[Rfam]
RNA sequence: CCGCUCCCUACCAAUGAGCCGCCGGAUCUCCCAGUGAGGAGGCCGGGGCCGCUGGAUCCGGUGACCCCGUUCUCCUCGCCGGCGGAUCCGGCGCUCCAGAGAAAGGAACGA
Numbered sequence: 001c002c003g004c005u006c007c008c009u010a011c012c013a014a015u016g017a018g019c020c021g022c023c024g025g026a027u028c029u030c031c032c033a034g035u036g037a038g039g040a041g042g043c044c045g046g047g048g049c050c051g052c053u054g055g056a057u058c059c060g061g062u063g064a065c066c067c068c069g070u071u072c073u074c075c076u077c078g079c080c081g082g083c084g085g086a087u088c089c090g091g092c093g094c095u096c097c098a099g100a101g102a103a104a105g106g107a108a109c110g111a
Base pairs, nucleotide, nucleotide: 005107006106007105009102012099016096017095018094019093021092022091023090024089025088026087027086028085029084031082032081034079035078036077037076038075039074040073041072042071044069045068046067047066048065050063051062052061053060054059
Dot-bracket structure: ....(((.(..(...((((.(((((((((.((.(((((((((.(((((.(((((....))))).))))).))))))))).)).)))))))))))))..)..)..)))....